[Rfam]
RNA sequence: AAAAGUAGCAGCUAAAGUAGAGUGAGAAUCUCUACCACCGAAAGGGCUAGGUUUCCUCGACGAUGUUCAUCAGUCGAGGGUUAGUCGGUCCUAAGGCAACUCUUAACCGAAGUUGUCGAAAGGGAAACAGGUUAAUAUUCCUGUACUUUACAAGCAUUUGUUUAAAUUUUGACGCAUCCGGGUAGACUUAGCAGGCUUGUCUGUCUGUUUAAGCGUAUUAAAUUGAGGGAGUACCGUAAUGGUGAGAACUUGAUCAAAGCGUGAUGAAUCUGCCACUUUUAGGUGGAUUAGGUUUAUCCCAGGUGCCCGUGAAAAGAGAUUUAAGAUGUAGUUUGUGGAUCCGUACCGAGAACUGACACAGGUGUCUCUAGCUAAAUAAGCUAAGGUGUGU
Numbered sequence: 001a002a003a004a005g006u007a008g009c010a011g012c013u014a015a016a017g018u019a020g021a022g023u024g025a026g027a028a029u030c031u032c033u034a035c036c037a038c039c040g041a042a043a044g045g046g047c048u049a050g051g052u053u054u055c056c057u058c059g060a061c062g063a064u065g066u067u068c069a070u071c072a073g074u075c076g077a078g079g080g081u082u083a084g085u086c087g088g089u090c091c092u093a094a095g096g097c098a099a100c101u102c103u104u105a106a107c108c109g110a111a112g113u114u115g116u117c118g119a120a121a122g123g124g125a126a127a128c129a130g131g132u133u134a135a136u137a138u139u140c141c142u143g144u145a146c147u148u149u150a151c152a153a154g155c156a157u158u159u160g161u162u163u164a165a166a167u168u169u170u171g172a173c174g175c176a177u178c179c180g181g182g183u184a185g186a187c188u189u190a191g192c193a194g195g196c197u198u199g200u201c202u203g204u205c206u207g208u209u210u211a212a213g214c215g216u217a218u219u220a221a222a223u224u225g226a227g228g229g230a231g232u233a234c235c236g237u238a239a240u241g242g243u244g245a246g247a248a249c250u251u252g253a254u255c256a257a258a259g260c261g262u263g264a265u266g267a268a269u270c271u272g273c274c275a276c277u278u279u280u281a282g283g284u285g286g287a288u289u290a291g292g293u294u295u296a297u298c299c300c301a302g303g304u305g306c307c308c309g310u311g312a313a314a315a316g317a318g319a320u321u322u323a324a325g326a327u328g329u330a331g332u333u334u335g336u337g338g339a340u341c342c343g344u345a346c347c348g349a350g351a352a353c354u355g356a357c358a359c360a361g362g363u364g365u366c367u368c369u370a371g372c373u374a375a376a377u378a379a380g381c382u383a384a385g386g387u388g389u390g391u
Base pairs, nucleotide, nucleotide: 017035018034019033020032021031022030036388037387038386039385044367045366046365047364050347051346055079056078057077058076059075060074064072065071086343087342088341090123091122095117096116097115098114099113100112101110102109127144128143129142130141131140147339148338149337150336151335152334153333154332168318169317170316174306175305176304177303178302180300181299182298185294186293187292188291189290190209191208192207193206194205195204213262214261215260216259223253224252225251226250227249233243234242235241274282353362354361369383370382371381372380
Description:
Rfam assigns this 391-nucleotide part of an RNA from Thermoplasmatales archaeon SCGC AB-539-C06 to the family "Archaeal large subunit ribosomal RNA". For this family Rfam cites "Crystal structure of the ribosome at 5.5 A resolution" (Yusupov et al., Science, 2001). Taxonomically the source falls in Thermoplasmatales (Archaea, Methanobacteriati, Thermoplasmatota, Thermoplasmata). The family's consensus secondary structure is taken from published work.